The family of this 65-nucleotide RNA is "L2-Alphaproteobacteria ribosomal protein leader". The base pairs follow the family's consensus structure, which is taken from published work. On this family, see Eckert and Weinberg, BMC Microbiol 2020: "Discovery of 20 novel ribosomal leader candidates in bacteria and archaea".
RNA sequence: GGCCACCUGCGGGGGGCUUUACCAAAGGCGGUAAGUCCGCCGACAUAGCAAACGGAAGACAGAAA
Dot-bracket structure: ((((.(((...)))))))........(((((.....)))))........................